[Rfam]
RNA sequence: CUACAUACUUGGCAAAACUGAUGAAAGUCAGCGACGCAAAGCUAAAGGGUCUAAAUCAUAGUAUAUGAUAUGACAGCCAGUUGCCCCU
Numbered sequence: 001c002u003a004c005a006u007a008c009u010u011g012g013c014a015a016a017a018c019u020g021a022u023g024a025a026a027g028u029c030a031g032c033g034a035c036g037c038a039a040a041g042c043u044a045a046a047g048g049g050u051c052u053a054a055a056u057c058a059u060a061g062u063a064u065a066u067g068a069u070a071u072g073a074c075a076g077c078c079a080g081u082u083g084c085c086c087c088u
Stems, first nucleotide, its partner, number of pairs: 012037002018031005040082004047078002049074003056068004
Dot-bracket structure: ...........((....(((((....)))))....))..((((...(((((....((((.....))))...)))..))))))......
Source information
The record is an 88-nucleotide RNA from Enterocloster lavalensis, which matches "c-di-GMP-I riboswitch aptamer" in Rfam. From the family's description: GEMM was predicted in a large-scale screen for bacterial structured RNA regulatory elements.